Notes: Rfam assigns this 220-nucleotide RNA sequence from Schinkia azotoformans to the family "Group II catalytic intron D1-D4-3". Pairs were carried over by alignment from the consensus structure. The literature on the family includes a 2001 paper in Trends Genet by Bonen and Vogel, "The ins and outs of group II introns". About the family: Group II introns are found in rRNA, tRNA and mRNA of organelles in fungi, plants and protists, and also in mRNA in bacteria.

RNA sequence: AACACCGUGAGGUGUUGUCUGAAGGAGAUGCGGAAAGUCGUGAGACCCGUAGGUGAAUAGGUAGACCCUAAUGCAAUAAGUGUGAAGCACGGCGGCGGGAUAAGUUGGUGACUUUUCGAAAAGUGAGGAAGCCCACUAAACAGGCAUUUCUUUAGAAGUCAGACCGAAGAAAUGUGGCUUAUAACGUGAUGGUGCAGGGUAUGCCCAGAAGGGAAAUGCG
Numbered sequence: 001a002a003c004a005c006c007g008u009g010a011g012g013u014g015u016u017g018u019c020u021g022a023a024g025g026a027g028a029u030g031c032g033g034a035a036a037g038u039c040g041u042g043a044g045a046c047c048c049g050u051a052g053g054u055g056a057a058u059a060g061g062u063a064g065a066c067c068c069u070a071a072u073g074c075a076a077u078a079a080g081u082g083u084g085a086a087g088c089a090c091g092g093c094g095g096c097g098g099g100a101u102a103a104g105u106u107g108g109u110g111a112c113u114u115u116u117c118g119a120a121a122a123g124u125g126a127g128g129a130a131g132c133c134c135a136c137u138a139a140a141c142a143g144g145c146a147u148u149u150c151u152u153u154a155g156a157a158g159u160c161a162g163a164c165c166g167a168a169g170a171a172a173u174g175u176g177g178c179u180u181a182u183a184a185c186g187u188g189a190u191g192g193u194g195c196a197g198g199g200u201a202u203g204c205c206c207a208g209a210a211g212g213g214a215a216a217u218g219c220g
Base pairs, nucleotide, nucleotide: 001016002015003014004013005012006011046220048218049217050216054212058207060205061204062203064202065200066199067198068197069196087195088194089193090192095187096186097185100182101181102180103179104178105177107133108132109131112127113126114125